The record is a 93-nucleotide RNA from Protaetiibacter sp. SSC-01, which matches "Glycine riboswitch aptamer" in Rfam. Lineage of the source: Bacteria > Bacillati > Micrococcales > Microbacteriaceae > Protaetiibacter. It scores 66 bits against the family's covariance model.
[Rfam]
RNA sequence: GCACGCGAUGCGGGAGAGCCGUGGCAGAGCCCACGGCACCGAAGGAGCAAGCCUCCCCGCCAAUCUCUCAGGUACGUGUACCGCAUCGACAGG
Numbered sequence: 001g002c003a004c005g006c007g008a009u010g011c012g013g014g015a016g017a018g019c020c021g022u023g024g025c026a027g028a029g030c031c032c033a034c035g036g037c038a039c040c041g042a043a044g045g046a047g048c049a050a051g052c053c054u055c056c057c058c059g060c061c062a063a064u065c066u067c068u069c070a071g072g073u074a075c076g077u078g079u080a081c082c083g084c085a086u087c088g089a090c091a092g093g
Stems, first nucleotide, its partner, number of pairs: 006088008019036004038073003041069002045067003051060002
Dot-bracket structure: .....((((((((.....((((..........)))).(((((..(((...((......))....))))).))).......)))))))).....